The family of this 322-nucleotide sequence from Sinocyclocheilus rhinocerous is "Vertebrate telomerase RNA". Lineage of the source: Eukaryota > Vertebrata > Ostariophysi > Cyprininae > Sinocyclocheilus. Its family is annotated with telomerase catalytic core complex, telomerase activity and telomere maintenance via telomerase in the Gene Ontology. Pairs were carried over by alignment from the consensus structure, which is taken from published work. Rfam 15.1 lists 523 matches to the family in 477 species. From the family's description: Telomerase is a ribonucleoprotein reverse transcriptase that synthesises telomeric DNA. Telomerase RNAs differ greatly in sequence and structure between vertebrates, ciliates and yeasts, but they share a 5' pseudoknot structure close to the template sequence. Vertebrate telomerase RNAs have a 3' H/ACA snoRNA-like domain. It is annotated as a non-coding RNA gene. The literature on the family includes a 2000 paper in Cell by Chen et al., "Secondary structure of vertebrate telomerase RNA". The match comes from Rfam's covariance-model search (70 bits).
[Rfam]
RNA sequence: UGUGCAGAGUACUUUUUCUAACCCUAACGCUCUCUGGCUUCCUGUACGGUAUUUAUACUGUUUUGUCUUAGGCUUUCAGUAUAUUACAGGAAGUUUUCCGCGUUUCCGAUGCUUCUAAAAAAAGCUAUAGAGUACUCUGAUGCUCGGUCUCACAGGUUUGACUGUUUGUGCGCGGACAGUCCGACUGCCGCGAAGAGUUCAACUCUGCUGCACAUGUGUCAGAUCUGUGGGCGUUCAGCACGCUGAGCAGAAUAAAUUGAGCAUGGCGAACUUUUGCUGAUCUCUCCACUGGUCCUGCAAAUAAGCCCGCGCUCAGACACUC
Dot-bracket structure: ....((((((((((.......................(((((...........(((((((..........[[[[[[))))))).....)))))..........................]]].]]]...))))))))))...((((((...(((((((((((....(((((((((.((((...))))))))).((((.....))))....))))...))))))))))).............))))))...........((((.(((......((((..((((........))))...)))).....))).))))........